[Rfam]
RNA sequence: GGGCUUGGUUUCCUGGGAGGUAGGCUCAGCCUAUUCUACCUCUCCUCAGCCAAGCCUAGAAUAGAGGGUCCAGGCUUCCUUCUUUAUGGAAGAGGCAUUGGAGGAAGGAGCCUCAUCUGGGCUGGCCUGGCCUUACAUUU
Number, nucleotide and partner (000 for none) at each position: 001g000002g056003g055004c054005u053006u052007g051008g000009u000010u000011u000012c000013c000014u000015g044016g043017g042018a041019g040020g039021u038022a037023g036024g035025c000026u000027c000028a000029g000030c000031c000032u000033a000034u000035u024036c023037u022038a021039c020040c019041u018042c017043u016044c015045c000046u000047c000048a000049g000050c000051c007052a006053a005054g004055c003056c002057u000058a000059g000060a000061a000062u000063a000064g000065a000066g134067g133068g132069u000070c130071c000072a128073g127074g126075c000076u000077u000078c121079c120080u119081u000082c000083u000084u000085u000086a000087u000088g113089g112090a000091a000092g000093a000094g000095g000096c000097a000098u000099u000100g000101g000102a000103g000104g000105a000106a000107g000108g000109a000110g000111c000112c089113u088114c000115a000116u000117c000118u000119g080120g079121g078122c000123u000124g000125g000126c074127c073128u072129g000130g070131c000132c068133u067134u066135a000136c000137a000138u000139u000140u000
The record is a 140-nucleotide RNA sequence from Dipodomys ordii, which matches "Small Cajal body specific RNA 21" in Rfam. The family's consensus secondary structure was predicted with RNAalifold. scaRNAs are a specific class of small nuclear RNAs which localise to the Cajal bodies and guide the modification of RNA polymerase II transcribed spliceosomal RNAs U1, U2, U4, U5 and U12. NCBI's taxonomy places the organism under Eukaryota, Teleostomi, Tetrapoda, Amniota, Dipodomys. Rfam classes the family as a small Cajal body RNA. It scores 130 bits against the family's covariance model.